RNA: Small nucleolar RNA U54
Organism: Capsella rubella
RNA sequence: GGCUCUGUGAUUACUUUGCCUAAUUGGCAGUAUACGCUAUUCUGAUAUUUAUGAAGGAUAAAUCAUUUUUGACUUAAUGAGAGCC
Numbered sequence: 001g002g003c004u005c006u007g008u009g010a011u012u013a014c015u016u017u018g019c020c021u022a023a024u025u026g027g028c029a030g031u032a033u034a035c036g037c038u039a040u041u042c043u044g045a046u047a048u049u050u051a052u053g054a055a056g057g058a059u060a061a062a063u064c065a066u067u068u069u070u071g072a073c074u075u076a077a078u079g080a081g082a083g084c085c
Base pairs, nucleotide, nucleotide: 001085002084003083004082005081